[Rfam]
RNA sequence: UCGUUAAGUGGUAACGUGACAGAUGAAGUGUCACGUCAUCACACAUUGUCAUGGACAUCUCAUUGCCCAUGUCAUCAUGCCUUCAAUGACGUGGCACUGACGUGUUGGUGAUUGGACAUGAUGGCAUGACAUUUUGUUUGUCAUGUAAUCACUUAACAAAA
Numbered sequence: 001u002c003g004u005u006a007a008g009u010g011g012u013a014a015c016g017u018g019a020c021a022g023a024u025g026a027a028g029u030g031u032c033a034c035g036u037c038a039u040c041a042c043a044c045a046u047u048g049u050c051a052u053g054g055a056c057a058u059c060u061c062a063u064u065g066c067c068c069a070u071g072u073c074a075u076c077a078u079g080c081c082u083u084c085a086a087u088g089a090c091g092u093g094g095c096a097c098u099g100a101c102g103u104g105u106u107g108g109u110g111a112u113u114g115g116a117c118a119u120g121a122u123g124g125c126a127u128g129a130c131a132u133u134u135u136g137u138u139u140g141u142c143a144u145g146u147a148a149u150c151a152c153u154u155a156a157c158a159a160a161a
Base pairs, nucleotide, nucleotide: 001159003157004156005155006154007153008152009151010150011149012148014146015145016144017143018142019141020140021139022138023137024136025135026134027133028132029131030130031129032128033127035125036124037123038122039121040120041119046114048112049111050110051109052108054106055105056104057103058102071090072089073088074087075086

Rfam assigns this 161-nucleotide RNA sequence from Glycine max to the family "MIR4371 microRNA precursor family".
Its Rfam clan is "MIR4387 microRNA precursor clan".
The source organism's lineage runs through Eukaryota, Viridiplantae, eudicotyledons, Fabaceae and Glycine subgen. Soja.
Rfam 15.1 lists 321 matches to the family in 4 species.
A search with the family's covariance model found it, with a score of 116 bits.